Rfam assigns this 107-nucleotide sequence from Hoeflea marina to the family "Rhizobiales sRNA Atu_At1". The source organism's lineage runs through Bacteria, Pseudomonadota, Alphaproteobacteria, Hyphomicrobiales and Hoeflea. Rfam 15.1 lists 200 matches to the family in 177 species.
RNA sequence: GGGUUCCGCAUGUCAAUCGGACCCGAUGGUAUGGAAAACGCCGGGAUUUUUCCGAUUUCUUCCGGCGGCCAACGCAACGGCAGUCGAGUUCCUGUCCCAUCUGCGGA
Numbered sequence: 001g002g003g004u005u006c007c008g009c010a011u012g013u014c015a016a017u018c019g020g021a022c023c024c025g026a027u028g029g030u031a032u033g034g035a036a037a038a039c040g041c042c043g044g045g046a047u048u049u050u051u052c053c054g055a056u057u058u059c060u061u062c063c064g065g066c067g068g069c070c071a072a073c074g075c076a077a078c079g080g081c082a083g084u085c086g087a088g089u090u091c092c093u094g095u096c097c098c099a100u101c102u103g104c105g106g107a
Stems, first nucleotide, its partner, number of pairs: 006106004012022003025101003028097002033092004039067007068081003